[Rfam]
The family of this 158-nucleotide RNA sequence from Populus deltoides is "mir-172 microRNA precursor family".
mir-172 has been experimentally verified in Arabidopsis thaliana. This family is thought to target mRNAs coding for APETALA2-like transcription factors. The mature sequence is excised from the 3' arm of the hairpin.
The organism belongs to Populus, within Eukaryota.
Rfam links the family to the GO terms miRNA-mediated post-transcriptional gene silencing and RISC complex.
The family has 11 seed sequences and 2,076 matches in Rfam 15.1.
The family's consensus secondary structure was predicted with PFOLD.
RNA sequence: UUGUUUGCACGUGUUGCAUCACCAAGAUUCACAUGCAAAUGCAUGGCCGAUGAUAUAUGUUGGAAUUUUUUUAAAAAAAAUAUAUCUUUCUUUCUUUCUGAUCAUCUGCCAAAGUUCUUUGGAAGUGAGAAUCUUGAUGAUGCUGCAUCAGCAAUAAA
Numbered sequence: 001u002u003g004u005u006u007g008c009a010c011g012u013g014u015u016g017c018a019u020c021a022c023c024a025a026g027a028u029u030c031a032c033a034u035g036c037a038a039a040u041g042c043a044u045g046g047c048c049g050a051u052g053a054u055a056u057a058u059g060u061u062g063g064a065a066u067u068u069u070u071u072u073a074a075a076a077a078a079a080a081u082a083u084a085u086c087u088u089u090c091u092u093u094c095u096u097u098c099u100g101a102u103c104a105u106c107u108g109c110c111a112a113a114g115u116u117c118u119u120u121g122g123a124a125g126u127g128a129g130a131a132u133c134u135u136g137a138u139g140a141u142g143c144u145g146c147a148u149c150a151g152c153a154a155u156a157a158a
Base pairs, nucleotide, nucleotide: 011148012147013146014145016143017142018141019140020139021138023136024135025134026133027132028131029130030129032127033126